[Rfam]
RNA sequence: AAGGCAAGCAGCGACUGGCGGCACGAGGAUGGUCCAACCAUCGGGGAGCUCGUCACGGGAGUCGUCCGCCUGGGCUCCCCGG
Dot-bracket structure: ..(((....(((..(([[[[[.......((((.....))))..))..))).)))....(((((..]]]]]..))))).....
Notes
A member of the RNA family "ZMP/ZTP riboswitch aptamer (pfl RNA motif)" from Actinoplanes octamycinicus, 82 nucleotides long. Pairs were carried over by alignment from the consensus structure, which is taken from published work.